[Rfam]
RNA: glmS glucosamine-6-phosphate activated ribozyme aptamer
RNA sequence: CACGUAACAAAAGCGCCUGGACUAUUUUUCGAGCGGUGAAAAGUAGUUGACGAGGAGGAGGUUUAUCGAAGAAAAUCGGCGGAUACCUCCCGGUUGCACACAUCAUCAACCGAUAAGCUUUUUAUUCCAAAACAGUGAGGCAACUCAUUGCACAAAGAAUGAAAGCAGAUGAUGC
Dot-bracket structure: ...................((((((((.(.........).))))))))........(((((....((((......))))......)))))((((((..........))))))......(((((((.......(((((((....)))))))........)))))))..........
Numbered sequence: 001c002a003c004g005u006a007a008c009a010a011a012a013g014c015g016c017c018u019g020g021a022c023u024a025u026u027u028u029u030c031g032a033g034c035g036g037u038g039a040a041a042a043g044u045a046g047u048u049g050a051c052g053a054g055g056a057g058g059a060g061g062u063u064u065a066u067c068g069a070a071g072a073a074a075a076u077c078g079g080c081g082g083a084u085a086c087c088u089c090c091c092g093g094u095u096g097c098a099c100a101c102a103u104c105a106u107c108a109a110c111c112g113a114u115a116a117g118c119u120u121u122u123u124a125u126u127c128c129a130a131a132a133c134a135g136u137g138a139g140g141c142a143a144c145u146c147a148u149u150g151c152a153c154a155a156a157g158a159a160u161g162a163a164a165g166c167a168g169a170u171g172a173u174g175c
Stems, first nucleotide, its partner, number of pairs: 020048008029039001057090005066079004091112006119165007133150007